Background: A member of the RNA family "FMN riboswitch aptamer (RFN element)" from Deinococcus aerius, 219 nucleotides long.
[Rfam]
RNA sequence: CGCUUCCUUCGGGGCGGGGUGAGAUUCCCCACCGGCGGUGAUGGCGCAGAGCCUCAGCCCGCGAAGCCCGCGCAAAUUGCAGCCCGCGCAGGCCCGAUCCCGUGAAACUCGGGGGCCGACGGUAUACCAGAGGCAGAGGCACGUCGACGUGUCCAGAAAGGCGAGGGGCCGCCCCCGAGCCUGAGGUCGAUGGCACAGUCCGGAUGAGAGAAGGAGGAA
Numbered sequence: 001c002g003c004u005u006c007c008u009u010c011g012g013g014g015c016g017g018g019g020u021g022a023g024a025u026u027c028c029c030c031a032c033c034g035g036c037g038g039u040g041a042u043g044g045c046g047c048a049g050a051g052c053c054u055c056a057g058c059c060c061g062c063g064a065a066g067c068c069c070g071c072g073c074a075a076a077u078u079g080c081a082g083c084c085c086g087c088g089c090a091g092g093c094c095c096g097a098u099c100c101c102g103u104g105a106a107a108c109u110c111g112g113g114g115g116c117c118g119a120c121g122g123u124a125u126a127c128c129a130g131a132g133g134c135a136g137a138g139g140c141a142c143g144u145c146g147a148c149g150u151g152u153c154c155a156g157a158a159a160g161g162c163g164a165g166g167g168g169c170c171g172c173c174c175c176c177g178a179g180c181c182u183g184a185g186g187u188c189g190a191u192g193g194c195a196c197a198g199u200c201c202g203g204a205u206g207a208g209a210g211a212a213g214g215a216g217g218a219a
Stems, first nucleotide, its partner, number of pairs: 003217008017029003033118002035062004057116002066093002098114005120202003
The source organism's lineage runs through Bacteria, Thermotogati, Deinococcota, Deinococcales and Deinococcus.